The record is an 86-nucleotide sequence from Phenylobacterium sp. Root1277, which matches "ZMP/ZTP riboswitch aptamer (pfl RNA motif)" in Rfam. The organism belongs to Phenylobacterium, within Bacteria. The base pairs follow the family's consensus structure, which is taken from published work.

RNA sequence: GGCGUUCCGUGUGACUGGCGAAAUCUAAGGUGGGCGACCACCGGGGAGCGCGGGACCUCAUCACGCCGCUCGCCUGGGCAUUUUCC
Numbered sequence: 001g002g003c004g005u006u007c008c009g010u011g012u013g014a015c016u017g018g019c020g021a022a023a024u025c026u027a028a029g030g031u032g033g034g035c036g037a038c039c040a041c042c043g044g045g046g047a048g049c050g051c052g053g054g055a056c057c058u059c060a061u062c063a064c065g066c067c068g069c070u071c072g073c074c075u076g077g078g079c080a081u082u083u084u085c086c
Base pairs, nucleotide, nucleotide: 004056005055006054007053008052009051010050011049012048015045016044017074018073019072020071021070030041031040032039033038063081065079066078067077